[Rfam]
RNA: Small nucleolar RNA SNORA38
Organism: Erinaceus europaeus
Nucleotides: 137
Stems, first nucleotide, its partner, number of pairs: 002056005015043007024029001075130003097115001099113002102110002
Number, partner (000 for none) and nucleotide at each position: 001000c002056u003055c004054u005053c006052c007000u008000a009000c010000a011000a012000a013000g014000g015043u016042a017041u018040g019039u020038c021037u022000g023000u024029g025000g026000u027000u028000c029024c030000u031000a032000u033000c034000u035000u036000u037021g038020g039019a040018c041017a042016u043015g044000g045000a046000a047000g048000a049000a050000c051000u052006g053005g054004a055003g056002g057000u058000a059000a060000a061000a062000a063000a064000a065000a066000a067000a068000a069000a070000a071000a072000a073000a074000u075130g076129g077128a078000c079000u080000u081000a082000g083000a084000g085000a086000a087000g088000u089000c090000u091000u092000g093000g094000g095000c096000c097115a098000a099113c100112u101000c102110g103109c104000u105000c106000u107000c108000u109103g110102c111000a112100g113099g114000c115097u116000a117000a118000c119000a120000a121000u122000c123000a124000a125000c126000c127000u128077u129076c130075u131000c132000a133000c134000a135000a136000a137000g